[Rfam]
RNA sequence: AAAUGUUGUGUUCGGUUCGAUAUCUGUGAUAACUCUUUAGGUAUUCCUUCGAACAAGAUGCAAAAAGAACAGAAAAUGACAGCCCUUCUACGAGUGAUUAGCCUGGUCGUGAUUAGCGUGGUGGUGAUUAUUAUCCCACCGUGCGGGGCUGCACUUGGACGAGGAAAGGCUUAAUAAUCAAGCCUUAACGAACUAAGACCCCCGCACCGAAAGGUCCGGGGGUUUUUUUAUGACUUUAAAACAUAAGCGAGGAGCAGACGAUGACUAGUAGCACAAAAUUCUGUUUCUCUCGAUUUAC
Numbered sequence: 001a002a003a004u005g006u007u008g009u010g011u012u013c014g015g016u017u018c019g020a021u022a023u024c025u026g027u028g029a030u031a032a033c034u035c036u037u038u039a040g041g042u043a044u045u046c047c048u049u050c051g052a053a054c055a056a057g058a059u060g061c062a063a064a065a066a067g068a069a070c071a072g073a074a075a076a077u078g079a080c081a082g083c084c085c086u087u088c089u090a091c092g093a094g095u096g097a098u099u100a101g102c103c104u105g106g107u108c109g110u111g112a113u114u115a116g117c118g119u120g121g122u123g124g125u126g127a128u129u130a131u132u133a134u135c136c137c138a139c140c141g142u143g144c145g146g147g148g149c150u151g152c153a154c155u156u157g158g159a160c161g162a163g164g165a166a167a168g169g170c171u172u173a174a175u176a177a178u179c180a181a182g183c184c185u186u187a188a189c190g191a192a193c194u195a196a197g198a199c200c201c202c203c204g205c206a207c208c209g210a211a212a213g214g215u216c217c218g219g220g221g222g223u224u225u226u227u228u229u230a231u232g233a234c235u236u237u238a239a240a241a242c243a244u245a246a247g248c249g250a251g252g253a254g255c256a257g258a259c260g261a262u263g264a265c266u267a268g269u270a271g272c273a274c275a276a277a278a279u280u281c282u283g284u285u286u287c288u289c290u291c292g293a294u295u296u297a298c
Stems, first nucleotide, its partner, number of pairs: 005033005012026001014024001016022001037074002041070002044066002048062001049058002084252003088247002092242001098238001100236001101234001103232001106229001108118003120140005126135003141160002144157004163189001168185002171182002195226010206215003253285006262273002

Soft rot Enterobacteriaceae Rev 39 5'UTR: a 298-nucleotide RNA sequence. The family's consensus secondary structure was predicted with RNAfold. The family's RNA type in Rfam is cis-regulatory element. Rfam describes the family as follows. From bacteria cultured under starvation conditions.